A member of the RNA family "Vibrio RNA AS9" from Nitrosospira sp. Nsp1, 104 nucleotides long. The organism belongs to Nitrosospira, within Bacteria. It scores 65 bits against the family's covariance model. By type it is an antisense RNA. The literature on the family includes a 2009 paper in Nucleic Acids Res by Liu et al., "Experimental discovery of sRNAs in Vibrio cholerae by direct cloning, 5S/tRNA depletion and parallel sequencing". Rfam's curators write: Identified by direct cloning an parallel sequencing experiments with 5S/tRNA depletion.
RNA sequence: UUUGCGGCAGCGCUCCUCGGUCAGCGUCAAGCAGAUCAGGCCCCGCCCAUGCGUCGCCAUGAAAUUGAUCGCUGCCGGGGUGACGAAAUCGGCGGCCAGGAUCA
Number, nucleotide and partner (000 for none) at each position: 001u000002u000003u000004g057005c056006g055007g054008c053009a000010g027011c026012g025013c024014u023015c000016c000017u000018c000019g000020g000021u000022c000023a014024g013025c012026g011027u010028c000029a000030a000031g000032c000033a000034g000035a050036u049037c000038a000039g047040g046041c045042c000043c000044c000045g041046c040047c039048c000049a036050u035051g000052c000053g008054u007055c006056g005057c004058c000059a000060u000061g000062a000063a000064a000065u000066u104067g103068a102069u101070c100071g096072c095073u000074g093075c092076c091077g090078g000079g000080g000081u000082g000083a000084c000085g000086a000087a000088a000089u000090c077091g076092g075093c074094g000095g072096c071097c000098a000099g000100g070101a069102u068103c067104a066